[Rfam]
RNA sequence: AGCUAAAUUCAGUGCCAGUAUCAUACACAAUGAGGUUUAUCCAAGGCGCGAUUAUUGCUAAUUGAAAACUUUUCCCAAUACCCCGCUGUGAUGACUUGCAAUACAGUCAGCACUGGCUAUUUCUGACAGUCUCUACGGAGA
Numbered sequence: 001a002g003c004u005a006a007a008u009u010c011a012g013u014g015c016c017a018g019u020a021u022c023a024u025a026c027a028c029a030a031u032g033a034g035g036u037u038u039a040u041c042c043a044a045g046g047c048g049c050g051a052u053u054a055u056u057g058c059u060a061a062u063u064g065a066a067a068a069c070u071u072u073u074c075c076c077a078a079u080a081c082c083c084c085g086c087u088g089u090g091a092u093g094a095c096u097u098g099c100a101a102u103a104c105a106g107u108c109a110g111c112a113c114u115g116g117c118u119a120u121u122u123c124u125g126a127c128a129g130u131c132u133c134u135a136c137g138g139a140g141a
Stems, first nucleotide, its partner, number of pairs: 020052003024048001028045001034042002085117003088113003092109005130141004
Dot-bracket structure: ...................(((.(...(.....((.....))..)..).)))................................((((((.(((((........))))).))).)))............((((....))))
U4 spliceosomal RNA: a 141-nucleotide sequence from Saimiri boliviensis. A search with the family's covariance model found it, with a score of 84 bits. For this family Rfam cites "The uRNA database" (Zwieb, Nucleic Acids Res, 1997). By type it is a spliceosomal small nuclear RNA.